[Rfam]
RNA sequence: CCUCGCAGAGCUUGUCAAUCCUAAGCAUCUCUUUUACACAGAGAAGAAGUUUGUGAAAUUCGAACUGCCUGGA
Numbered sequence: 001c002c003u004c005g006c007a008g009a010g011c012u013u014g015u016c017a018a019u020c021c022u023a024a025g026c027a028u029c030u031c032u033u034u035u036a037c038a039c040a041g042a043g044a045a046g047a048a049g050u051u052u053g054u055g056a057a058a059u060u061c062g063a064a065c066u067g068c069c070u071g072g073a
Base pairs, nucleotide, nucleotide: 001072002071005068006067007066010026011025012024013023028044029043030042031041032040049065050064051063052062053061
tRNA: a 73-nucleotide sequence. The literature on the family includes a 1993 paper in Trends Biochem Sci by Hou, "The tertiary structure of tRNA and the development of the genetic code". Gene Ontology term of the family: triplet codon-amino acid adaptor activity. The base pairs follow the family's consensus structure, which is taken from published work.